Description:
Molybdenum/Tungsten riboswitch aptamer (Moco RNA motif): a 147-nucleotide RNA from Actinobacillus delphinicola.
[Rfam]
RNA sequence: UACGCUUAACUACGCCGAGCUUGUUAACCUAAGUUUUGAUUUCGCAUAGAUAAAUAUGGUGGCAAGCCAGUAACUGAGGUUACUCAGGGAACAGUUGGAAACGACUUUUCCUUUCGUUAUUUAAAAAGGUGUUCAAUGCAAACUAUU
Numbered sequence: 001u002a003c004g005c006u007u008a009a010c011u012a013c014g015c016c017g018a019g020c021u022u023g024u025u026a027a028c029c030u031a032a033g034u035u036u037u038g039a040u041u042u043c044g045c046a047u048a049g050a051u052a053a054a055u056a057u058g059g060u061g062g063c064a065a066g067c068c069a070g071u072a073a074c075u076g077a078g079g080u081u082a083c084u085c086a087g088g089g090a091a092c093a094g095u096u097g098g099a100a101a102c103g104a105c106u107u108u109u110c111c112u113u114u115c116g117u118u119a120u121u122u123a124a125a126a127a128g129g130u131g132u133u134c135a136a137u138g139c140a141a142a143c144u145a146u147u
Stems, first nucleotide, its partner, number of pairs: 006138001012132005019067007027060003033055004069084005087112005093106005113124002
Dot-bracket structure: .....(.....(((((..(((((((.(((...((((...............))))..)))))))))).(((((......)))))..(((((.(((((....))))).)))))((........))...))))).....).........
The source organism's lineage runs through Bacteria, Pseudomonadati, Pseudomonadota, Pasteurellales and Actinobacillus.